This 101-nucleotide sequence from Phaseolus vulgaris belongs to the Rfam family "MIR397 microRNA precursor family". NCBI's taxonomy places the organism under Eukaryota, Euphyllophyta, rosids, fabids, Phaseolus.
RNA sequence: UAGAGAAACAUCAUUGAGUGCAGCGUUGAUGAAGUUUCUGUCUCACUUGUGUUCUCAGGUACAAGAAAUUGUCAUCGACACUGCAUUCAAUCAUGUUUUUC
Numbered sequence: 001u002a003g004a005g006a007a008a009c010a011u012c013a014u015u016g017a018g019u020g021c022a023g024c025g026u027u028g029a030u031g032a033a034g035u036u037u038c039u040g041u042c043u044c045a046c047u048u049g050u051g052u053u054c055u056c057a058g059g060u061a062c063a064a065g066a067a068a069u070u071g072u073c074a075u076c077g078a079c080a081c082u083g084c085a086u087u088c089a090a091u092c093a094u095g096u097u098u099u100u101c
Stems, first nucleotide, its partner, number of pairs: 006098006013091011025079004030074003